[Rfam]
RNA sequence: AAACCAGUUAAAGCGCCAGCGCCAAGAAAAUCGCACAGAUUCUCGGCAGACGAGGUGGAGGUUCAUCGAACAUUCGGCGGAUGCCUCCUGAUCGCAGAUACCCGAUCAUAUGCAGUUCCUAAAACACAGAGGUAACUCGGUGACACAAAAGGGAUGUAGCAGGUAU
Numbered sequence: 001a002a003a004c005c006a007g008u009u010a011a012a013g014c015g016c017c018a019g020c021g022c023c024a025a026g027a028a029a030a031u032c033g034c035a036c037a038g039a040u041u042c043u044c045g046g047c048a049g050a051c052g053a054g055g056u057g058g059a060g061g062u063u064c065a066u067c068g069a070a071c072a073u074u075c076g077g078c079g080g081a082u083g084c085c086u087c088c089u090g091a092u093c094g095c096a097g098a099u100a101c102c103c104g105a106u107c108a109u110a111u112g113c114a115g116u117u118c119c120u121a122a123a124a125c126a127c128a129g130a131g132g133u134a135a136c137u138c139g140g141u142g143a144c145a146c147a148a149a150a151g152g153g154a155u156g157u158a159g160c161a162g163g164u165a166u
Stems, first nucleotide, its partner, number of pairs: 021047003025043003057088005066077004089108006113156002116153003125142003129138003
Dot-bracket structure: ....................(((.(((.............))).))).........(((((....((((....))))......)))))((((((........))))))....((.(((......(((.(((....))).)))........))).))..........

A member of the RNA family "glmS glucosamine-6-phosphate activated ribozyme aptamer" from Sporosarcina sp. BI001-red, 166 nucleotides long. This entry contains a glucosamine-6-phosphate activated ribozyme that is found in the mRNA for GlmS. GlmS is an enzyme that uses fructose-6-phosphate and glutamine to generate glucosamine-6-phosphate. The ribozyme catalyses self cleavage of the glmS mRNA that is thought to regulate GlmS activity. It is annotated as a riboswitch.